Description:
Bacterial RNase P class A: a 305-nucleotide RNA sequence from Methylobacillus flagellatus.
[Rfam]
RNA sequence: GAAGCUGGCCAGGCAGCCGCCGCUCGCGCAAGCGAGGGGAGGAAAGUCCGGGCUCCAUAGAGCAGGAUGACGGCUAACGGCCGUACGCCGUGAGGCGAGGAACAGGGCCACAGAGACGAGUAAGCCGCAAGGUGGACGUGAAACGCGGUAACCUCCAUCCGGAGCAAGGCCAAAUAGGGUAGCGAUGGCGUGGCUCGCGCCGCUACCGGGUAGGUCGCUUGAGCCUGGUGGCAACGCCAGGCCUAGAUGAAUGGCUGCCACCCGCUUUGCGGGGACAGAACCCGGCUUACCGGCCAGCUUCAUUC
Numbered sequence: 001g002a003a004g005c006u007g008g009c010c011a012g013g014c015a016g017c018c019g020c021c022g023c024u025c026g027c028g029c030a031a032g033c034g035a036g037g038g039g040a041g042g043a044a045a046g047u048c049c050g051g052g053c054u055c056c057a058u059a060g061a062g063c064a065g066g067a068u069g070a071c072g073g074c075u076a077a078c079g080g081c082c083g084u085a086c087g088c089c090g091u092g093a094g095g096c097g098a099g100g101a102a103c104a105g106g107g108c109c110a111c112a113g114a115g116a117c118g119a120g121u122a123a124g125c126c127g128c129a130a131g132g133u134g135g136a137c138g139u140g141a142a143a144c145g146c147g148g149u150a151a152c153c154u155c156c157a158u159c160c161g162g163a164g165c166a167a168g169g170c171c172a173a174a175u176a177g178g179g180u181a182g183c184g185a186u187g188g189c190g191u192g193g194c195u196c197g198c199g200c201c202g203c204u205a206c207c208g209g210g211u212a213g214g215u216c217g218c219u220u221g222a223g224c225c226u227g228g229u230g231g232c233a234a235c236g237c238c239a240g241g242c243c244u245a246g247a248u249g250a251a252u253g254g255c256u257g258c259c260a261c262c263c264g265c266u267u268u269g270c271g272g273g274g275a276c277a278g279a280a281c282c283c284g285g286c287u288u289a290c291c292g293g294c295c296a297g298c299u300u301c302a303u304u305c
Stems, first nucleotide, its partner, number of pairs: 001301010012259007020039002023036005044288003048285005053164004060196004065160005070084005086097004100155002105153002107149003120137002125135004168216004178207006187201005223242008
Taxonomically the source falls in Methylobacillus flagellatus (Bacteria, Pseudomonadati, Betaproteobacteria, Methylobacillus).
Pairs were carried over by alignment from the consensus structure, which is taken from published work.
By type it is a ribozyme.